RNA: Eukaryotic large subunit ribosomal RNA, nucleotides 794 to 1073
Organism: uncultured eukaryote HF0200_37F04
RNA sequence: GAGUCUAGCUUUUGUGUAAGUGCGAGGGUGGUAAACCUUUACGCGUAAUGAAGGUAAGAGUUUGGAUUUUUUAGUUUUGCACAAACGUCCGAUUUCGAUCUUUUGAGAGAGAUUUGAGAAAGAACACAAUGGCUAGGACCCGAAAGAUGGUGAACUAUGCCUGAGUAGGGUGAAGCCAGGGGAAACUCUGGUGGAGGCUCGUAGCGGUACUGACGUGCAAAUCGUUCGUCGAACUUGGGUAUAGGGGCGAAAGACUAAUCGAACCAUCUAGUAGCUGGUU
Numbered sequence: 001g002a003g004u005c006u007a008g009c010u011u012u013u014g015u016g017u018a019a020g021u022g023c024g025a026g027g028g029u030g031g032u033a034a035a036c037c038u039u040u041a042c043g044c045g046u047a048a049u050g051a052a053g054g055u056a057a058g059a060g061u062u063u064g065g066a067u068u069u070u071u072u073a074g075u076u077u078u079g080c081a082c083a084a085a086c087g088u089c090c091g092a093u094u095u096c097g098a099u100c101u102u103u104u105g106a107g108a109g110a111g112a113u114u115u116g117a118g119a120a121a122g123a124a125c126a127c128a129a130u131g132g133c134u135a136g137g138a139c140c141c142g143a144a145a146g147a148u149g150g151u152g153a154a155c156u157a158u159g160c161c162u163g164a165g166u167a168g169g170g171u172g173a174a175g176c177c178a179g180g181g182g183a184a185a186c187u188c189u190g191g192u193g194g195a196g197g198c199u200c201g202u203a204g205c206g207g208u209a210c211u212g213a214c215g216u217g218c219a220a221a222u223c224g225u226u227c228g229u230c231g232a233a234c235u236u237g238g239g240u241a242u243a244g245g246g247g248c249g250a251a252a253g254a255c256u257a258a259u260c261g262a263a264c265c266a267u268c269u270a271g272u273a274g275c276u277g278g279u280u
Base pairs, nucleotide, nucleotide: 005136006135007134008133009132010131012129013128014127015126016125017124020044021043022042025039026038027037028036029035048055049054060086061085062084063083064082088119089118090116091115092114093112094111095110099106100105139278140277142275146268147267148266149265150264151263155244156243157242158241159240160239161238162237163236164235165234166232168200169199170198171197175192176191177190178189179188180187181186204229205228206227207226209225210224212223213222246256247255